[Rfam]
The record is an 80-nucleotide sequence from Calidifontibacillus erzurumensis, which matches "Glycine riboswitch aptamer" in Rfam.
RNA sequence: UCUCUGGAGAGCGCAUCAAAGCCACCAAAGGGGUAACACCUUCUAACAUGAGGUAAAACUCUCAGGUACAAGGACAGAGA
Numbered sequence: 001u002c003u004c005u006g007g008a009g010a011g012c013g014c015a016u017c018a019a020a021g022c023c024a025c026c027a028a029a030g031g032g033g034u035a036a037c038a039c040c041u042u043c044u045a046a047c048a049u050g051a052g053g054u055a056a057a058a059c060u061c062u063c064a065g066g067u068a069c070a071a072g073g074a075c076a077g078a079g080a
Stems, first nucleotide, its partner, number of pairs: 001080006013022002024067003028062001031061003038054005